The family of this 84-nucleotide RNA from Aotus nancymaae is "mir-548 microRNA precursor family". The family's consensus secondary structure was predicted with WAR. Taxonomically the source falls in Aotus (Eukaryota, Chordata, Vertebrata, Gnathostomata). On this family, see Jima et al., Blood 2010: "Deep sequencing of the small RNA transcriptome of normal and malignant human B cells identifies hundreds of novel microRNAs".
RNA sequence: UAUUAGGCUGGUGCAAAGGUAAUUGCAGUUUUUGCCAUUAAAAGUAAUGGCAAAAACUGCAAUUACCUUUACACCAACCUAAAA
Numbered sequence: 001u002a003u004u005a006g007g008c009u010g011g012u013g014c015a016a017a018g019g020u021a022a023u024u025g026c027a028g029u030u031u032u033u034g035c036c037a038u039u040a041a042a043a044g045u046a047a048u049g050g051c052a053a054a055a056a057c058u059g060c061a062a063u064u065a066c067c068u069u070u071a072c073a074c075c076a077a078c079c080u081a082a083a084a
Stems, first nucleotide, its partner, number of pairs: 001084001003082005009076005015070026